A member of the RNA family "Small nucleolar RNA SNORA74" from Phoenicopterus ruber, 204 nucleotides long. The family is grouped with related families in Rfam's "SNORA74 clan". It is annotated as an H/ACA-box small nucleolar RNA.
RNA sequence: UCCAGCGGUAGUCAGCUACCUGUUGCCGCUCCGUGCCUGCGAUAGUGUUAUGCUGCUGGGAGAGCAAUGCGCUGCCAAGUCGCUCCUGGCACCGCCGGUGCUGUUCUAGUGCCGGACAGGGCCAGGUUUUGGCAGCACUCUGCAUGCUUGAGAGUGGAGUAACUCCUUCUCGGUGGAGUUAAUCCUAGAUUGGAUGCAGACAGU
Numbered sequence: 001u002c003c004a005g006c007g008g009u010a011g012u013c014a015g016c017u018a019c020c021u022g023u024u025g026c027c028g029c030u031c032c033g034u035g036c037c038u039g040c041g042a043u044a045g046u047g048u049u050a051u052g053c054u055g056c057u058g059g060g061a062g063a064g065c066a067a068u069g070c071g072c073u074g075c076c077a078a079g080u081c082g083c084u085c086c087u088g089g090c091a092c093c094g095c096c097g098g099u100g101c102u103g104u105u106c107u108a109g110u111g112c113c114g115g116a117c118a119g120g121g122c123c124a125g126g127u128u129u130u131g132g133c134a135g136c137a138c139u140c141u142g143c144a145u146g147c148u149u150g151a152g153a154g155u156g157g158a159g160u161a162a163c164u165c166c167u168u169c170u171c172g173g174u175g176g177a178g179u180u181a182a183u184c185c186u187a188g189a190u191u192g193g194a195u196g197c198a199g200a201c202a203g204u
Stems, first nucleotide, its partner, number of pairs: 001060009011051002015046004020041001021039002025036002069138001071136007085126006092119001095115002097112001099111004140199006147192001156185003160181007
Overview:
Rfam describes the family as follows. U19 belongs to the H/ACA class of snoRNAs. snoRNAs bind a number of proteins (including dyskerin, Gar1p and Nop10p in the case of the H/ACA class) to form snoRNP complexes. This class are thought to guide the sites of modification of uridines to pseudouridines by forming direct base pairing interactions with substrate RNAs. Targets may include ribosomal and spliceosomal RNAs but the exact functions of many snoRNAs, including U19, are not confirmed. Co-precipitation of U19 snoRNA with RNase MRP RNA suggests that U19 may be involved in pre-rRNA processing. For this family Rfam cites "Human U19 intron-encoded snoRNA is processed from a long primary transcript that possesses little potential for protein coding" (Bortolin and Kiss, RNA, 1998). Its family is annotated with RNA processing and nucleolus in the Gene Ontology.